This 96-nucleotide RNA from Vibrio nigripulchritudo belongs to the Rfam family "c-di-GMP-I riboswitch aptamer". Its Rfam clan is "c-di-GMP_I riboswitch clan". The match comes from Rfam's covariance-model search (51 bits).
[Rfam]
RNA sequence: CGACUCUUAGGGCAAACCCAUUGAGAAGUGGGGGCGCAAAAUGACAGUACCUAGUUAACUUUAGGACGUUCAAUUUAGGUAGGCUGCAUUGCUGAG
Numbered sequence: 001c002g003a004c005u006c007u008u009a010g011g012g013c014a015a016a017c018c019c020a021u022u023g024a025g026a027a028g029u030g031g032g033g034g035c036g037c038a039a040a041a042u043g044a045c046a047g048u049a050c051c052u053a054g055u056u057a058a059c060u061u062u063a064g065g066a067c068g069u070u071c072a073a074u075u076u077a078g079g080u081a082g083g084c085u086g087c088a089u090u091g092c093u094g095a096g
Base pairs, nucleotide, nucleotide: 012037013036017032018031019030020029021028022027040090041089042088043087045086046085047084048081049080050079051078052077053076054075